RNA sequence: UAUGCCAUGGAUCGCCACCCGUCAGCGAGGUUUCGCCCGCGGGUGCAGUACUG
Numbered sequence: 001u002a003u004g005c006c007a008u009g010g011a012u013c014g015c016c017a018c019c020c021g022u023c024a025g026c027g028a029g030g031u032u033u034c035g036c037c038c039g040c041g042g043g044u045g046c047a048g049u050a051c052u053g
Stems, first nucleotide, its partner, number of pairs: 016045007025036004
A member of the RNA family "ffh sRNA" from Roseicitreum antarcticum, 53 nucleotides long. Taxonomically the source falls in Roseicitreum (Bacteria, Pseudomonadati, Alphaproteobacteria, Rhodobacterales). The base pairs follow the family's consensus structure, which is taken from published work. The family's RNA type in Rfam is small RNA.